This 84-nucleotide RNA sequence from Amborella trichopoda belongs to the Rfam family "Small nucleolar RNA J33". It scores 67 bits against the family's covariance model. A reference for the family is Chen et al. (2003), "The high diversity of snoRNAs in plants: identification and comparative study of 120 snoRNA genes from Oryza sativa", Nucleic Acids Res. Pairs were carried over by alignment from the consensus structure. By type it is a C/D-box small nucleolar RNA. Gene Ontology terms of the family: RNA processing and nucleolus.
[Rfam]
RNA sequence: CAGUUCGUGGGAUGAUGUAUUAUUACAAGGCUCUUGAGAUGCUUACUUUUCUUGAUUCAGCUUCUGAAAUGUCUCUUAGAGAUG
Numbered sequence: 001c002a003g004u005u006c007g008u009g010g011g012a013u014g015a016u017g018u019a020u021u022a023u024u025a026c027a028a029g030g031c032u033c034u035u036g037a038g039a040u041g042c043u044u045a046c047u048u049u050u051c052u053u054g055a056u057u058c059a060g061c062u063u064c065u066g067a068a069a070u071g072u073c074u075c076u077u078a079g080a081g082a083u084g
Base pairs, nucleotide, nucleotide: 001084002083004081005080006079